[Rfam]
RNA sequence: CCUAUGGGGAAGGCGAUCUCCUCACGAGGCUAAGGCCAAAGCAUCGCGUCCCUACUGCACUGGUUGCAAGGACGCGCCAUG
Numbered sequence: 001c002c003u004a005u006g007g008g009g010a011a012g013g014c015g016a017u018c019u020c021c022u023c024a025c026g027a028g029g030c031u032a033a034g035g036c037c038a039a040a041g042c043a044u045c046g047c048g049u050c051c052c053u054a055c056u057g058c059a060c061u062g063g064u065u066g067c068a069a070g071g072a073c074g075c076g077c078c079a080u081g
Base pairs, nucleotide, nucleotide: 005024006023007022008021009020010019046075047074048073049072050071051070

The record is an 81-nucleotide sequence from Methylorubrum extorquens, which matches "chrB-a RNA" in Rfam.
Pairs were carried over by alignment from the consensus structure, which is taken from published work.
The source organism's lineage runs through Bacteria, Pseudomonadati, Hyphomicrobiales, Methylorubrum and Methylorubrum extorquens.